Nucleotides: 093
Base pairs, nucleotide, nucleotide: 002088003087004086005085006084007083012077013076014075015074019071020070025069026068027067028066
Number, partner (000 for none) and nucleotide at each position: 001000g002088c003087g004086c005085u006084g007083g008000u009000u010000u011000a012077g013076c014075u015074c016000a017000a018000g019071g020070g021000u022000u023000a024000c025069u026068u027067c028066a029000a030000c031000g032000g033000a034000a035000u036000u037000c038000u039000u040000g041000u042000u043000u044000c045000a046000a047000g048000g049000u050000c051000g052000g053000c054000g055000g056000g057000c058000c059000a060000g061000a062000a063000a064000u065000a066028u067027g068026a069025a070020c071019c072000a073000c074015g075014g076013g077012c078000g079000c080000u081000g082000u083007c084006u085005a086004g087003c088002g089000u090000u091000u092000u093000a